Annotation: A member of the RNA family "Guanidine-II riboswitch aptamer (mini-ykkC)" from Verrucomicrobia bacterium LW23, 54 nucleotides long. Taxonomically the source falls in Verrucomicrobiota (Bacteria, Pseudomonadati). Simpler in structure and has fewer highly conserved nucleotide positions than the ykkC-yxkD leader. Gene Ontology term of the family: regulation of gene expression.
[Rfam]
RNA sequence: ACGCGGGGACGACUCCGCUGCUCCACAACCAUUCACCCUGCAGGGACGACCCUG
Numbered sequence: 001a002c003g004c005g006g007g008g009a010c011g012a013c014u015c016c017g018c019u020g021c022u023c024c025a026c027a028a029c030c031a032u033u034c035a036c037c038c039u040g041c042a043g044g045g046a047c048g049a050c051c052c053u054g
Base pairs, nucleotide, nucleotide: 003018004017005016006015007014008013041054042053043052044051045050